[Rfam]
RNA sequence: UACCCCUGACCUGGGUGAAUUGGCAUCAGUUUUGUGGUACUCACCUCACUUCAGCAGGGGCAAAACAGCCAGCCUCCCGUUUUCCCAGCUUGGCUGCUGCUCUAUGUAGCCCAGGCCUGGCUUUGCUUAUGUGGAACAA
Numbered sequence: 001u002a003c004c005c006c007u008g009a010c011c012u013g014g015g016u017g018a019a020u021u022g023g024c025a026u027c028a029g030u031u032u033u034g035u036g037g038u039a040c041u042c043a044c045c046u047c048a049c050u051u052c053a054g055c056a057g058g059g060g061c062a063a064a065a066c067a068g069c070c071a072g073c074c075u076c077c078c079g080u081u082u083u084c085c086c087a088g089c090u091u092g093g094c095u096g097c098u099g100c101u102c103u104a105u106g107u108a109g110c111c112c113a114g115g116c117c118u119g120g121c122u123u124u125g126c127u128u129a130u131g132u133g134g135a136a137c138a139a
Base pairs, nucleotide, nucleotide: 001062003060004059005058006057007056008055011054012053013052014051019046022041023040025038026037027036077134078133079132080131082129092127093126094125102120103119104118106116107115
The record is a 139-nucleotide RNA sequence from Sciurus carolinensis, which matches "Small nucleolar RNA SNORA48" in Rfam. Its Rfam clan is "SNORA48 clan". By type it is an H/ACA-box small nucleolar RNA. NCBI's taxonomy places the organism under Eukaryota, Bilateria, Theria, Rodentia, Sciurus. The family has 24 seed sequences and 2,109 matches in Rfam 15.1. The literature on the family includes a 1997 paper in J Mol Biol by Ofengand and Bakin, "Mapping to nucleotide resolution of pseudouridine residues in large subunit ribosomal RNAs from representative eukaryotes, prokaryotes, archaebacteria, mitochondria and chloroplasts". The family's consensus secondary structure was predicted with RNAalifold. It scores 54 bits against the family's covariance model. Rfam describes the family as follows. The snoRNA ACA 48 has been identified to guide pseudouridylation of the residue U3797 in the 28S rRNA subunit.